The record is a 91-nucleotide RNA from Ferrimonas lipolytica, which matches "c-di-GMP-I riboswitch aptamer" in Rfam. Lineage of the source: Bacteria > Pseudomonadati > Pseudomonadota > Ferrimonadaceae > Ferrimonas. About the family: GEMM was predicted in a large-scale screen for bacterial structured RNA regulatory elements. It scores 62 bits against the family's covariance model. Rfam links the family to the GO term cyclic-di-GMP binding.
[Rfam]
RNA sequence: AGCAGACAAAGGCAAAGUCAGUGUGAACUGAUGACGCAAAGUCUCCGGUCUCAAGCGAAGUAACACAGCUUGAGAUAGCGGGACUACCACA
Numbered sequence: 001a002g003c004a005g006a007c008a009a010a011g012g013c014a015a016a017g018u019c020a021g022u023g024u025g026a027a028c029u030g031a032u033g034a035c036g037c038a039a040a041g042u043c044u045c046c047g048g049u050c051u052c053a054a055g056c057g058a059a060g061u062a063a064c065a066c067a068g069c070u071u072g073a074g075a076u077a078g079c080g081g082g083a084c085u086a087c088c089a090c091a
Base pairs, nucleotide, nucleotide: 012037013036017032018031019030020029021028022027040085041084042083043082045081046080047079048076049075050074057071058070
Dot-bracket structure: ...........((...((((((....))))))...))..((((.((((((......((...........))..)))..)))))))......